Annotation
This 92-nucleotide sequence from Crassaminicella thermophila belongs to the Rfam family "Glycine riboswitch aptamer". The base pairs follow the family's consensus structure. Lineage of the source: Bacteria > Bacillati > Clostridia > Clostridiaceae > Crassaminicella. It scores 60 bits against the family's covariance model.

[Rfam]
RNA sequence: AGACACAACCCUGGAGAGACCCUUCGAUAGGGCAUCGAAGAAGCAACUUACUUUGUAAGGAAACUUUCAGAUUAAAGGACAGGGAGUAAUUA
Numbered sequence: 001a002g003a004c005a006c007a008a009c010c011c012u013g014g015a016g017a018g019a020c021c022c023u024u025c026g027a028u029a030g031g032g033c034a035u036c037g038a039a040g041a042a043g044c045a046a047c048u049u050a051c052u053u054u055g056u057a058a059g060g061a062a063a064c065u066u067u068c069a070g071a072u073u074a075a076a077g078g079a080c081a082g083g084g085a086g087u088a089a090u091u092a
Stems, first nucleotide, its partner, number of pairs: 009084005020032004034072003037068002041066003047059002